[Rfam]
RNA sequence: CAGUCUCGGGAUGACUCUAAAAGCGCCCUGGUGCGGGUGGAUGUUGCCGCUUGGUUUGUGUGUUCCAGUCAAAGACACUCUGGUAAAUCCCCUU
Number, nucleotide and partner (000 for none) at each position: 001c000002a000003g000004u000005c000006u000007c000008g000009g028010g027011a000012u025013g024014a000015c000016u022017c000018u000019a000020a000021a000022a016023g000024c013025g012026c000027c010028c009029u000030g000031g000032u000033g000034c000035g000036g000037g000038u049039g048040g047041a000042u000043g000044u000045u000046g000047c040048c039049g038050c000051u068052u067053g066054g065055u000056u000057u000058g080059u000060g078061u077062g076063u075064u000065c054066c053067a052068g051069u000070c000071a000072a000073a000074g000075a063076c062077a061078c060079u000080c058081u000082g000083g000084u000085a000086a000087a000088u000089c000090c000091c000092c000093u000094u000
The record is a 94-nucleotide RNA sequence, which matches "wcaG RNA" in Rfam. The family's RNA type in Rfam is cis-regulatory element.